[Rfam]
Rfam assigns this 59-nucleotide sequence from Parascaris univalens to the family "Coronavirus 3' UTR pseudoknot". From the family's description: Coronaviruses are plus-strand RNA viruses with ~30kb genomes. Gene Ontology term of the family: viral genome replication. It scores 37 bits against the family's covariance model.

RNA sequence: ACACUUGUAGAUAAUACAGCUUGAUGCUAAUGACAGUUCAAGAAGUUAUUACCAUAUCA
Numbered sequence: 001a002c003a004c005u006u007g008u009a010g011a012u013a014a015u016a017c018a019g020c021u022u023g024a025u026g027c028u029a030a031u032g033a034c035a036g037u038u039c040a041a042g043a044a045g046u047u048a049u050u051a052c053c054a055u056a057u058c059a
Base pairs, nucleotide, nucleotide: 005041006040007039009037025054026053028051029050030049031048032047033046034045